[Rfam]
RNA sequence: CGGGAUCCGUCCCGUUGGAAAGGAAUGUAGCUCACCAAUGAGCCGAACCUUACA
Numbered sequence: 001c002g003g004g005a006u007c008c009g010u011c012c013c014g015u016u017g018g019a020a021a022g023g024a025a026u027g028u029a030g031c032u033c034a035c036c037a038a039u040g041a042g043c044c045g046a047a048c049c050u051u052a053c054a
Base pairs, nucleotide, nucleotide: 001014002013003012004011005010021050022049023048030043031042032041033040034039

Record summary:
The record is a 54-nucleotide sequence, which matches "eL15-Euryarchaeota ribosomal protein leader" in Rfam. On this family, see Eckert and Weinberg, BMC Microbiol 2020: "Discovery of 20 novel ribosomal leader candidates in bacteria and archaea".